Bacterial RNase P class A: a 307-nucleotide sequence from Polynucleobacter victoriensis. It scores 240 bits against the family's covariance model. Its Rfam clan is "RNaseP clan".
Nucleotides: 307
Stems, first nucleotide, its partner, number of pairs: 001303009012256007020039002023036005044290003048287005053161004060193004065157005070084005085099001086097004100152002105150002107146003121134004165213004175204006186196003221238007
Number, partner (000 for none) and nucleotide at each position: 001303a002302g003301a004300g005299u006298c007297g008296g009295u010000a011000a012256g013255g014254c015253a016252a017251u018250c019000g020039c021038u022000g023036c024035u025034u026033u027032g028000g029000u030000a031000a032027c033026a034025a035024a036023g037000g038021a039020g040000a041000g042000g043000a044290a045289a046288g047000u048287c049286c050285g051284g052283a053161c054160u055159c056158c057000a058000u059000a060193g061192g062191a063190c064000a065157g066156g067155g068154u069153g070084a071083u072082g073081g074080c075000u076000a077000a078000c079000g080074g081073c082072c083071a084070u085099c086097c087096a088095c089094g090000g091000u092000g093000a094089c095088g096087u097086g098000a099085g100152g101151a102000a103000u104000a105150g106149g107146g108145c109144c110000a111000c112000a113000g114000a115000g116000a117000c118000g119000a120000g121134c122133g123132u124131a125000u126000u127000u128000a129000g130000u131124u132123a133122c134121g135000g136000u137000g138000a139000a140000a141000c142000g143000c144109g145108g146107u147000a148000a149106c150105c151101u152100c153069c154068a155067c156066u157065c158056g159055g160054a161053g162000c163000a164000a165213u166212c167211c168210c169000a170000a171000a172000u173000a174000g175204g176203c177202a178201a179200g180199c181000g182000u183000u184000g185000a186196g187195g188194c189000g190063g191062u192061c193060c194188g195187c196186u197000g198000a199180g200179c201178u202177u203176g204175c205000g206000g207000g208000u209000a210168g211167g212166g213165a214000g215000c216000u217000u218000g219000a220000g221238u222237u223236c224235a225234c226233u227232g228000g229000u230000a231000a232227c233226a234225g235224u236223g237222a238221a239000a240000c241000u242000a243000g244000a245000u246000g247000a248000a249000u250018g251017a252016u253015u254014g255013c256012c257000c258000c259000u260000u261000u262000a263000c264000g265000a266000a267000a268000g269000u270000a271000u272000g273000g274000g275000c276000g277000a278000c279000a280000g281000a282000a283052u284051c285050c286049g287048g288046c289045u290044u291000a292000a293000u294000a295009g296008c297007c298006g299005g300004c301003u302002c303001u304000g305000c306000a307000c